[Rfam]
RNA sequence: AUAUGUUUUGUUGAUUGUCAUCUAAUUAUGUUUCUCUGUGUAAAGUGUAAAGUUGAUCAUAUAUAUAAUAUAUUGAAAUUAUGAUUAGAUGACCAUCAGCAAACACAUU
Number, nucleotide and partner (000 for none) at each position: 001a000002u000003a000004u000005g104006u103007u102008u101009u000010g100011u099012u098013g097014a096015u095016u000017g093018u092019c091020a090021u089022c088023u087024a086025a085026u084027u083028a082029u081030g080031u000032u000033u000034c000035u000036c000037u000038g000039u000040g000041u000042a000043a000044a000045g000046u000047g000048u000049a000050a000051a000052g000053u000054u000055g000056a000057u000058c000059a000060u000061a000062u000063a000064u000065a000066u000067a000068a000069u000070a000071u000072a000073u000074u000075g000076a000077a000078a000079u000080u030081a029082u028083g027084a026085u025086u024087a023088g022089a021090u020091g019092a018093c017094c000095a015096u014097c013098a012099g011100c010101a008102a007103a006104c005105a000106c000107a000108u000109u000

Background
This 109-nucleotide RNA sequence from Aquilegia coerulea belongs to the Rfam family "MIR827 microRNA precursor family". The organism belongs to Aquilegia, within Eukaryota. The family is grouped with related families in Rfam's "MIR827 microRNA precursor clan". The family has 5 seed sequences and 57 matches in Rfam 15.1. The match comes from Rfam's covariance-model search (67 bits). Its family is annotated with miRNA-mediated post-transcriptional gene silencing and RISC complex in the Gene Ontology.